[Rfam]
RNA sequence: CACACACGGGAUUUGGGUUGAUAUCGGGAGAAAUCCGAUAUGGCCUCCGGUGGCGGUUCUCCCGCCUCUUUCCUGUGGAGGUUAAACCGGAAAAGGAAAAUA
Numbered sequence: 001c002a003c004a005c006a007c008g009g010g011a012u013u014u015g016g017g018u019u020g021a022u023a024u025c026g027g028g029a030g031a032a033a034u035c036c037g038a039u040a041u042g043g044c045c046u047c048c049g050g051u052g053g054c055g056g057u058u059c060u061c062c063c064g065c066c067u068c069u070u071u072c073c074u075g076u077g078g079a080g081g082u083u084a085a086a087c088c089g090g091a092a093a094a095g096g097a098a099a100a101u102a
Stems, first nucleotide, its partner, number of pairs: 001080001003078001005077006015045002025037002028035001052066005
Rfam assigns this 102-nucleotide RNA from Phyllobacterium sp. YR620 to the family "rpsB sRNA".
A reference for the family is Meyer et al. (2009), "Identification of candidate structured RNAs in the marine organism 'Candidatus Pelagibacter ubique'", BMC Genomics.
The family's consensus secondary structure is taken from published work.
Rfam 15.1 lists 245 matches to the family in 245 species.
It scores 47 bits against the family's covariance model.